[Rfam]
RNA sequence: UAACGGAGAGGGAGAAGCUGUCACGAUUAUGUUAGCCACUGGCUGUUUCCAUCAUAAGCGUAUGGCUUUUCCCCUCUGCUG
Numbered sequence: 001u002a003a004c005g006g007a008g009a010g011g012g013a014g015a016a017g018c019u020g021u022c023a024c025g026a027u028u029a030u031g032u033u034a035g036c037c038a039c040u041g042g043c044u045g046u047u048u049c050c051a052u053c054a055u056a057a058g059c060g061u062a063u064g065g066c067u068u069u070u071c072c073c074c075u076c077u078g079c080u081g
Stems, first nucleotide, its partner, number of pairs: 004078004010073003014069002018065004027057005
Background: Rfam assigns this 81-nucleotide RNA sequence from Penaeus vannamei to the family "mir-965 microRNA precursor family". Lineage of the source: Eukaryota > Bilateria > Eumalacostraca > Dendrobranchiata > Penaeus. Its family is annotated with miRNA-mediated post-transcriptional gene silencing and RISC complex in the Gene Ontology. The match comes from Rfam's covariance-model search (49 bits). A reference for the family is Huang et al. (2012), "The regulation of silkworm fibroin L chain production by miRNA-965 and miRNA-1926 in insect cells", Bioorg Khim.